RNA sequence: CCUCGCCGGGGGUAAGCAGGCUCUAUGGGGGACUAACCCUAAUCGCUGUCGCAGCCCGCACGCUCGCCCGCUGUUUUACUCGCUGCCUUUCAGCGGGCAUAGGGAGCGGCUCUGGGGGGAGGGACCAAUCCGAGGAAAAGGAAAGAUUUCCUUCCUCAAAAAAAGCCAGCGAUUGGGAUGCACUUCCCGGCCCACCCUGGGGUCCCUGCGCCUUCCCCAGAGCCGGAACGCUCCGGUCUUCGCCCCUCGUGGAGGCCGCGGUCGGCAGGCUUAAUGCCGCUACGAUACCGCCGCGAAGAGCUCGUCUCUGUCAGCCUUGGCGAAGGCGGGGAGCCGGCCCGUCCCCGGGAAGCGCGGGGGCCCCAGUAGAACAAAACGGGCGCGACCCCGCGGGGCGCCGAGCAGCCGCGGCUCCGAGGAGUGGAGUGUGCGGCCGGCGCUGCCCCGACAUCA
Numbered sequence: 001c002c003u004c005g006c007c008g009g010g011g012g013u014a015a016g017c018a019g020g021c022u023c024u025a026u027g028g029g030g031g032a033c034u035a036a037c038c039c040u041a042a043u044c045g046c047u048g049u050c051g052c053a054g055c056c057c058g059c060a061c062g063c064u065c066g067c068c069c070g071c072u073g074u075u076u077u078a079c080u081c082g083c084u085g086c087c088u089u090u091c092a093g094c095g096g097g098c099a100u101a102g103g104g105a106g107c108g109g110c111u112c113u114g115g116g117g118g119g120a121g122g123g124a125c126c127a128a129u130c131c132g133a134g135g136a137a138a139a140g141g142a143a144a145g146a147u148u149u150c151c152u153u154c155c156u157c158a159a160a161a162a163a164a165g166c167c168a169g170c171g172a173u174u175g176g177g178a179u180g181c182a183c184u185u186c187c188c189g190g191c192c193c194a195c196c197c198u199g200g201g202g203u204c205c206c207u208g209c210g211c212c213u214u215c216c217c218c219a220g221a222g223c224c225g226g227a228a229c230g231c232u233c234c235g236g237u238c239u240u241c242g243c244c245c246c247u248c249g250u251g252g253a254g255g256c257c258g259c260g261g262u263c264g265g266c267a268g269g270c271u272u273a274a275u276g277c278c279g280c281u282a283c284g285a286u287a288c289c290g291c292c293g294c295g296a297a298g299a300g301c302u303c304g305u306c307u308c309u310g311u312c313a314g315c316c317u318u319g320g321c322g323a324a325g326g327c328g329g330g331g332a333g334c335c336g337g338c339c340c341g342u343c344c345c346c347g348g349g350a351a352g353c354g355c356g357g358g359g360g361c362c363c364c365a366g367u368a369g370a371a372c373a374a375a376a377c378g379g380g381c382g383c384g385a386c387c388c389c390g391c392g393g394g395g396c397g398c399c400g401a402g403c404a405g406c407c408g409c410g411g412c413u414c415c416g417a418g419g420a421g422u423g424g425a426g427u428g429u430g431c432g433g434c435c436g437g438c439g440c441u442g443c444c445c446c447g448a449c450a451u452c453a
Stems, first nucleotide, its partner, number of pairs: 005191008016181003021177003056109004066098008082170004087165001088163003197366007228342002230339001232337002234330001238326002240322001243319001257295005263290003297309004378445004382440003406433005412426004
Rfam assigns this 453-nucleotide RNA from Thryothorus ludovicianus to the family "Vertebrate telomerase RNA".
Taxonomically the source falls in Thryothorus (Eukaryota, Opisthokonta, Deuterostomia, Teleostomi).
It is annotated as a non-coding RNA gene.
The base pairs follow the family's consensus structure, which is taken from published work.
Rfam 15.1 lists 523 matches to the family in 477 species.
About the family: Telomerase is a ribonucleoprotein reverse transcriptase that synthesises telomeric DNA. Telomerase RNAs differ greatly in sequence and structure between vertebrates, ciliates and yeasts, but they share a 5' pseudoknot structure close to the template sequence. Vertebrate telomerase RNAs have a 3' H/ACA snoRNA-like domain.
Clan: Telomerase clan.
A reference for the family is Chen et al. (2000), "Secondary structure of vertebrate telomerase RNA", Cell.